[Rfam]
RNA: Actinobacteria sRNA Ms_IGR-7
Organism: Corynebacterium efficiens
RNA sequence: GUGAGGUGCCUUUCUGGGCGGUGGAAUUGAACUCUAGACAAGCUCUAUUCUUCCUGCCCAGGAGGGCAUUUCCUAUUUUCCCACGCCGUUACACCUGAAUCACAUCGGUGAAUCCAG
Numbered sequence: 001g002u003g004a005g006g007u008g009c010c011u012u013u014c015u016g017g018g019c020g021g022u023g024g025a026a027u028u029g030a031a032c033u034c035u036a037g038a039c040a041a042g043c044u045c046u047a048u049u050c051u052u053c054c055u056g057c058c059c060a061g062g063a064g065g066g067c068a069u070u071u072c073c074u075a076u077u078u079u080c081c082c083a084c085g086c087c088g089u090u091a092c093a094c095c096u097g098a099a100u101c102a103c104a105u106c107g108g109u110g111a112a113u114c115c116a117g
Stems, first nucleotide, its partner, number of pairs: 003072011015060003019056003023052001024050004029045001032042002097115001099113002103110002